[Rfam]
RNA sequence: GCCGGAGUGGCGGAAUUGGCAGACGCGCCAGCUUGAGGGGCUGGUCCGCUUACAAGCGGGUGCAGGUUCAAGUCCUGUCUCCGGCA
Numbered sequence: 001g002c003c004g005g006a007g008u009g010g011c012g013g014a015a016u017u018g019g020c021a022g023a024c025g026c027g028c029c030a031g032c033u034u035g036a037g038g039g040g041c042u043g044g045u046c047c048g049c050u051u052a053c054a055a056g057c058g059g060g061u062g063c064a065g066g067u068u069c070a071a072g073u074c075c076u077g078u079c080u081c082c083g084g085c086a
Base pairs, nucleotide, nucleotide: 001085002084003083004082005081006080007079010026011025012024028044029043030042031041032040062078063077064076065075066074
About this RNA
This 86-nucleotide RNA sequence from an uncultured bacterium belongs to the Rfam family "tRNA". The family has 954 seed sequences and 5,335,975 matches in Rfam 15.1. Rfam classes the family as a transfer RNA. A search with the family's covariance model found it, with a score of 52 bits. Its family is annotated with triplet codon-amino acid adaptor activity in the Gene Ontology. Pairs were carried over by alignment from the consensus structure, which is taken from published work.